A member of the RNA family "transfer-messenger RNA" from Treponema primitia, 348 nucleotides long.
On this family, see Williams and Bartel, RNA 1996: "Phylogenetic analysis of tmRNA secondary structure".
Clan: tRNA clan.
It scores 161 bits against the family's covariance model.
Bacterial tmRNA, also known as 10Sa RNA or SsrA, is named for its dual tRNA and mRNA-like properties.
By type it is a non-coding RNA gene.
[Rfam]
RNA sequence: GGGGGUGCACCGGUUUCGACAGGUACGGUUCGGAGUACAAGCUGCAGGUGGAGUGCCGAUCUCCUGAUUCGGCAAAAUUUUAACUGCCAACAAUGACAGUUACGCUUUCGCUGCGUAAGCAGUAGAGCGCGGAACCCGGCCCCGCCGCCUUGAGGGGCCGGCUUUCCGUCGCAAUCAAGGCUGGCCAAACCCCGGUUCCGGACGGGGGGCGGCGAGAAACUCCCGGAAUACGGACAGGCCGCGCGCCGAGAAGCCAAGCCAGUCCCGACAAUUCAAUUCACGGCUAAACCUGUAGACGCUUGUGCUUCGCGUAUUUGGACGCGGGUUCGACUCCCGCCACCUCCAAUA
Numbered sequence: 001g002g003g004g005g006u007g008c009a010c011c012g013g014u015u016u017c018g019a020c021a022g023g024u025a026c027g028g029u030u031c032g033g034a035g036u037a038c039a040a041g042c043u044g045c046a047g048g049u050g051g052a053g054u055g056c057c058g059a060u061c062u063c064c065u066g067a068u069u070c071g072g073c074a075a076a077a078u079u080u081u082a083a084c085u086g087c088c089a090a091c092a093a094u095g096a097c098a099g100u101u102a103c104g105c106u107u108u109c110g111c112u113g114c115g116u117a118a119g120c121a122g123u124a125g126a127g128c129g130c131g132g133a134a135c136c137c138g139g140c141c142c143c144g145c146c147g148c149c150u151u152g153a154g155g156g157g158c159c160g161g162c163u164u165u166c167c168g169u170c171g172c173a174a175u176c177a178a179g180g181c182u183g184g185c186c187a188a189a190c191c192c193c194g195g196u197u198c199c200g201g202a203c204g205g206g207g208g209g210c211g212g213c214g215a216g217a218a219a220c221u222c223c224c225g226g227a228a229u230a231c232g233g234a235c236a237g238g239c240c241g242c243g244c245g246c247c248g249a250g251a252a253g254c255c256a257a258g259c260c261a262g263u264c265c266c267g268a269c270a271a272u273u274c275a276a277u278u279c280a281c282g283g284c285u286a287a288a289c290c291u292g293u294a295g296a297c298g299c300u301u302g303u304g305c306u307u308c309g310c311g312u313a314u315u316u317g318g319a320c321g322c323g324g325g326u327u328c329g330a331c332u333c334c335c336g337c338c339a340c341c342u343c344c345a346a347u348a
Stems, first nucleotide, its partner, number of pairs: 001344007020317008032308011045292005050064004054074006106127003110123005130168005136161004141156003147181006184213003190207002194229001196227003232265004237260003241254002245284004250278002321337005